[Rfam]
RNA sequence: CACACAUACCAGCUGAGUUUUUGGGAUACAGCCAUGCUGUAUGCAGAGAGCGGGGGAACCAUCGAGAAGGACCGCAGCGGUUUCUUUUCAGGGGUGAAUCGGACGACAGGAUGUUAUGGAAUUCUGUUGGUCUGUAGGGAGACUCUUACUCCCGAAUCCGGCAGCUAACCUCGUAAGCUGAAAAUAAGAGAGGC
Numbered sequence: 001c002a003c004a005c006a007u008a009c010c011a012g013c014u015g016a017g018u019u020u021u022u023g024g025g026a027u028a029c030a031g032c033c034a035u036g037c038u039g040u041a042u043g044c045a046g047a048g049a050g051c052g053g054g055g056g057a058a059c060c061a062u063c064g065a066g067a068a069g070g071a072c073c074g075c076a077g078c079g080g081u082u083u084c085u086u087u088u089c090a091g092g093g094g095u096g097a098a099u100c101g102g103a104c105g106a107c108a109g110g111a112u113g114u115u116a117u118g119g120a121a122u123u124c125u126g127u128u129g130g131u132c133u134g135u136a137g138g139g140a141g142a143c144u145c146u147u148a149c150u151c152c153c154g155a156a157u158c159c160g161g162c163a164g165c166u167a168a169c170c171u172c173g174u175a176a177g178c179u180g181a182a183a184a185u186a187a188g189a190g191a192g193g194c
Stems, first nucleotide, its partner, number of pairs: 011179004018049006050174006060091001092159003100134004137153004

A member of the RNA family "c-di-AMP riboswitch aptamer (ydaO/yuaA leader)" from Paenibacillus bovis, 194 nucleotides long.